[Rfam]
RNA sequence: CGCAAUUGAUUGGAUAAAUUUCUGAAGCCUUCUAUGAAAAGUGCAUGUGCAAUCUGAUUACACUGUGAGACUGAGGCGU
Numbered sequence: 001c002g003c004a005a006u007u008g009a010u011u012g013g014a015u016a017a018a019u020u021u022c023u024g025a026a027g028c029c030u031u032c033u034a035u036g037a038a039a040a041g042u043g044c045a046u047g048u049g050c051a052a053u054c055u056g057a058u059u060a061c062a063c064u065g066u067g068a069g070a071c072u073g074a075g076g077c078g079u
Stems, first nucleotide, its partner, number of pairs: 001078003040053001042051003
The record is a 79-nucleotide sequence from Oryctolagus cuniculus, which matches "Small nucleolar RNA SNORD60" in Rfam. Pairs were carried over by alignment from the consensus structure, which was predicted with PFOLD. Its Rfam clan is "SNORD60 clan". The match comes from Rfam's covariance-model search (54 bits). Lineage of the source: Eukaryota > Metazoa > Dipnotetrapodomorpha > Mammalia > Oryctolagus. The literature on the family includes a 2002 paper in Mol Cell Biol by Galardi et al., "Purified box C/D snoRNPs are able to reproduce site-specific 2'-O-methylation of target RNA in vitro".